[Rfam]
RNA: Bacterial small signal recognition particle RNA
RNA sequence: CCCAGCCCCUCACGUGGCGCUAUCUCACCCAACUCCCCCAGGGCCGGAAGGCAGCAAGGGUAAGUGGGCUCUGGCGGGUGCGUGAGGGGCGCUUUGCGU
Numbered sequence: 001c002c003c004a005g006c007c008c009c010u011c012a013c014g015u016g017g018c019g020c021u022a023u024c025u026c027a028c029c030c031a032a033c034u035c036c037c038c039c040a041g042g043g044c045c046g047g048a049a050g051g052c053a054g055c056a057a058g059g060g061u062a063a064g065u066g067g068g069c070u071c072u073g074g075c076g077g078g079u080g081c082g083u084g085a086g087g088g089g090c091g092c093u094u095u096g097c098g099u
Base pairs, nucleotide, nucleotide: 004093005092006091008089009086010085011084012083013082014081015078018076019075020074021073022072024068025067026066027065028064035060036059037058043052044051045050